[Rfam]
RNA sequence: UCAGGAAGUUCUUGAUGUCGCGGAUCGCCAAAACAACGAUACGCGCCGCACGGCGACCAGCCGUUCACAAGAAACGAUCAACGUUAAUCUGCGCGCAUAAGCAGAUAGCGGCAAGUUAUUUUGUUUUUGGAAGUGAUGUACGGAGCAUAAGAGUAAUGAAAUUACCGAUCUAUCUGGAUUACUC
Numbered sequence: 001u002c003a004g005g006a007a008g009u010u011c012u013u014g015a016u017g018u019c020g021c022g023g024a025u026c027g028c029c030a031a032a033a034c035a036a037c038g039a040u041a042c043g044c045g046c047c048g049c050a051c052g053g054c055g056a057c058c059a060g061c062c063g064u065u066c067a068c069a070a071g072a073a074a075c076g077a078u079c080a081a082c083g084u085u086a087a088u089c090u091g092c093g094c095g096c097a098u099a100a101g102c103a104g105a106u107a108g109c110g111g112c113a114a115g116u117u118a119u120u121u122u123g124u125u126u127u128u129g130g131a132a133g134u135g136a137u138g139u140a141c142g143g144a145g146c147a148u149a150a151g152a153g154u155a156a157u158g159a160a161a162u163u164a165c166c167g168a169u170c171u172a173u174c175u176g177g178a179u180u181a182c183u184c
Stems, first nucleotide, its partner, number of pairs: 001130007014049001017046002020044003025039003051063004065111002068108001078100001080098001082095003134164004146158003
The record is a 184-nucleotide sequence from Gibbsiella quercinecans, which matches "IscS-1 ICR thermometer" in Rfam. A reference for the family is Righetti et al. (2016), "Temperature-responsive in vitro RNA structurome of Yersinia pseudotuberculosis", Proc Natl Acad Sci U S A. It scores 125 bits against the family's covariance model.